Rfam assigns this 273-nucleotide sequence from Nannospalax galili to the family "Mason-Pfizer monkey virus packaging signal". Pairs were carried over by alignment from the consensus structure, which was predicted with PFOLD. About the family: This family represents a group of sequences that are related to the Mason-Pfizer monkey virus (MPMV) packaging signal. The packaging signal is located in the 5' UTR and is required for specific RNA encapsidation. Rfam classes the family as a cis-regulatory element. A reference for the family is Mustafa et al. (2004), "Mutational analysis of the predicted secondary RNA structure of the Mason-Pfizer monkey virus packaging signal", Virus Res.
RNA sequence: UGGCACCCAACGUGGCCUGGAUACUGGGGACCACGUGAGGGACACGGCGAAAGAAAAAGGGGUGCGCACCUGAUCAAACAAUAGUUCAGAGACAUCGCGGUAGCCUGCUGUGACCGAGCCAACAGGUAAGUUGGUCGUCAAUCAUGGAGCAAGAAUUAAGUCAGCAUCAAAAGUAUGUGAUGCAGUUAAGAGAAGUGUUACAGGCAAGAGGAGUAAAGGUUACAACUAAAGAUUUAUUUCAUUUCUUUGAUUUCGUACAGGACAUUUGUCCUU
Dot-bracket structure: .....(((...(((.......)))..)))....(((.......))).....................................((..........(((((.......))))).........))........(.((..(((....))).)).)....(((((.................................)).))).......((((((...(((((.........))))).......))))))..........(((((....))))).